[Rfam]
RNA sequence: GCCACCCGGAUGCCCGGUCGACAUCUGUGCAUCGGCAGGAGUGGAGGACCCAGUAAGGCGGGCCGUCCGGGAGACCGGCCGGUCCUUGGGGUGAAGUCGUACGCGACCGGGCAUCUUCGCCUGCCCGAACCCGACAGGUCAUCCUUCACAGGCGGCUGACGAAGGGUUG
Numbered sequence: 001g002c003c004a005c006c007c008g009g010a011u012g013c014c015c016g017g018u019c020g021a022c023a024u025c026u027g028u029g030c031a032u033c034g035g036c037a038g039g040a041g042u043g044g045a046g047g048a049c050c051c052a053g054u055a056a057g058g059c060g061g062g063c064c065g066u067c068c069g070g071g072a073g074a075c076c077g078g079c080c081g082g083u084c085c086u087u088g089g090g091g092u093g094a095a096g097u098c099g100u101a102c103g104c105g106a107c108c109g110g111g112c113a114u115c116u117u118c119g120c121c122u123g124c125c126c127g128a129a130c131c132c133g134a135c136a137g138g139u140c141a142u143c144c145u146u147c148a149c150a151g152g153c154g155g156c157u158g159a160c161g162a163a164g165g166g167u168u169g
Stems, first nucleotide, its partner, number of pairs: 002039002041149006051088002089132003097106003109126004
RNA: c-di-AMP riboswitch aptamer (ydaO/yuaA leader)